[Rfam]
Shown here is a 90-nucleotide RNA sequence from Carya illinoinensis, a member of the family "small nucleolar RNA snoR114".
It is annotated as a C/D-box small nucleolar RNA.
It scores 64 bits against the family's covariance model.
Lineage of the source: Eukaryota > Embryophyta > Mesangiospermae > Juglandaceae > Carya.
The base pairs follow the family's consensus structure, which was predicted with RNAalifold.
Nucleotides: 090
Base pairs, nucleotide, nucleotide: 001090002089003088004087
Number, partner (000 for none) and nucleotide at each position: 001090g002089a003088g004087c005000a006000g007000u008000g009000a010000u011000g012000g013000a014000u015000a016000c017000u018000u019000u020000g021000c022000g023000c024000c025000c026000u027000u028000g029000u030000g031000a032000u033000g034000g035000u036000u037000g038000g039000g040000u041000c042000c043000g044000u045000c046000a047000c048000c049000u050000u051000u052000c053000a054000u055000c056000u057000g058000c059000u060000c061000c062000a063000u064000c065000a066000g067000a068000u069000a070000a071000u072000a073000a074000u075000c076000c077000g078000c079000g080000c081000a082000u083000c084000u085000g086000a087004g088003c089002u090001c